[Rfam]
Overview
Rfam assigns this 68-nucleotide RNA sequence from Pyrobaculum islandicum to the family "Pyrobaculum sRNA 201". On this family, see Bernick et al., RNA 2012: "Discovery of Pyrobaculum small RNA families with atypical pseudouridine guide RNA features". About the family: Has weak conservation of the canonical pseudouridylation guide sRNA features among the Pyrobaculum species. Its family is annotated with RNA processing in the Gene Ontology. Rfam's curators put it in the seed alignment.
RNA sequence: GCCCCUGGCGUGGGGUGUCGAGGCGCCGUGUUGGCGGCUAUGAAAACGCCCCCUCCGAGGGGCAGAUA
Numbered sequence: 001g002c003c004c005c006u007g008g009c010g011u012g013g014g015g016u017g018u019c020g021a022g023g024c025g026c027c028g029u030g031u032u033g034g035c036g037g038c039u040a041u042g043a044a045a046a047c048g049c050c051c052c053c054u055c056c057g058a059g060g061g062g063c064a065g066a067u068a
Stems, first nucleotide, its partner, number of pairs: 001063006012052007024037001025035004